[Rfam]
RNA sequence: AGAAAACGACCUUUUUAAUGGUUGUUUCUUAUACGGUUUUGCCUCACGCUCAGAGUCGCCAAACUUUGAGAGCGUGGGGCUUUUU
Numbered sequence: 001a002g003a004a005a006a007c008g009a010c011c012u013u014u015u016u017a018a019u020g021g022u023u024g025u026u027u028c029u030u031a032u033a034c035g036g037u038u039u040u041g042c043c044u045c046a047c048g049c050u051c052a053g054a055g056u057c058g059c060c061a062a063a064c065u066u067u068g069a070g071a072g073c074g075u076g077g078g079g080c081u082u083u084u085u
Stems, first nucleotide, its partner, number of pairs: 005026007041080011052067005
Rfam assigns this 85-nucleotide RNA from Streptococcus phage Javan131 to the family "S. pyogenes small RNA 779816". For this family Rfam cites "RNA sequencing uncovers antisense RNAs and novel small RNAs in Streptococcus pyogenes" (Le Rhun et al., RNA Biol, 2016). The organism belongs to Caudoviricetes, within Viruses.